[Rfam]
This 138-nucleotide RNA from Cucurbita maxima belongs to the Rfam family "Small nucleolar RNA Z247". By type it is a C/D-box small nucleolar RNA. Rfam links the family to the GO terms nucleolus and RNA processing. The family has 8 seed sequences and 7,071 matches in Rfam 15.1. The organism belongs to Cucurbita, within Eukaryota. Pairs were carried over by alignment from the consensus structure, which was predicted with PFOLD. A search with the family's covariance model found it, with a score of 41 bits. A reference for the family is Chen et al. (2003), "The high diversity of snoRNAs in plants: identification and comparative study of 120 snoRNA genes from Oryza sativa", Nucleic Acids Res.
RNA sequence: GCAUUGUGGGAUGAUGACGUGAUCAUGUAUCUCCUCGCUAGUCUUGGCCUGAUUAUGAUCCCUUCGUCACCUUGAUGAUUACCAAGAGUGAAGCCUUCACGCUUGAUGAUGUGUUUGCACAUAUAAUGAAGUUUGAAG
Numbered sequence: 001g002c003a004u005u006g007u008g009g010g011a012u013g014a015u016g017a018c019g020u021g022a023u024c025a026u027g028u029a030u031c032u033c034c035u036c037g038c039u040a041g042u043c044u045u046g047g048c049c050u051g052a053u054u055a056u057g058a059u060c061c062c063u064u065c066g067u068c069a070c071c072u073u074g075a076u077g078a079u080u081a082c083c084a085a086g087a088g089u090g091a092a093g094c095c096u097u098c099a100c101g102c103u104u105g106a107u108g109a110u111g112u113g114u115u116u117g118c119a120c121a122u123a124u125a126a127u128g129a130a131g132u133u134u135g136a137a138g
Base pairs, nucleotide, nucleotide: 004137005136008133088107089106091104092103093102